The family of this 61-nucleotide RNA from Saimiri boliviensis is "mir-1285 microRNA precursor family". Rfam 15.1 lists 264 matches to the family in 27 species.
RNA sequence: AGAGGAUCUCACUUGAGCCCAGGAGUUUGAGACCAGCCUGGGCAACAUAGUGAGACAUCAU
Numbered sequence: 001a002g003a004g005g006a007u008c009u010c011a012c013u014u015g016a017g018c019c020c021a022g023g024a025g026u027u028u029g030a031g032a033c034c035a036g037c038c039u040g041g042g043c044a045a046c047a048u049a050g051u052g053a054g055a056c057a058u059c060a061u
Stems, first nucleotide, its partner, number of pairs: 007055007017043007027036003